[Rfam]
RNA sequence: CUUCACCGAGCCGACCAGCAGUGGGUCGUCCUGCGGACGUCCCGGGCCGUAGACGGCGCCGAGCGCCGCGGCCUC
Dot-bracket structure: .............(((.......)))....(((....((....(..(((....)))..)....))...)))....